[Rfam]
RNA: Plastid-psbA-1 3UTR RNA
Organism: Physalis pruinosa
RNA sequence: UCGAAGCUCCAUCUACAAAUGGAUAAGAUCCCGGUCUAGUCUAUAGCAGGUUUUGAAAAGAAAGGAGCAAUAAUCAUUUUCUUGUUUUACCAAGAGGGUGCUAUUGCUCCUUUCUU
Numbered sequence: 001u002c003g004a005a006g007c008u009c010c011a012u013c014u015a016c017a018a019a020u021g022g023a024u025a026a027g028a029u030c031c032c033g034g035u036c037u038a039g040u041c042u043a044u045a046g047c048a049g050g051u052u053u054u055g056a057a058a059a060g061a062a063a064g065g066a067g068c069a070a071u072a073a074u075c076a077u078u079u080u081c082u083u084g085u086u087u088u089a090c091c092a093a094g095a096g097g098g099u100g101c102u103a104u105u106g107c108u109c110c111u112u113u114c115u116u
Stems, first nucleotide, its partner, number of pairs: 008023005061113012077097001079096005
Dot-bracket structure: .......(((((......))))).....................................((((((((((((....(.(((((........))))))....))))))))))))...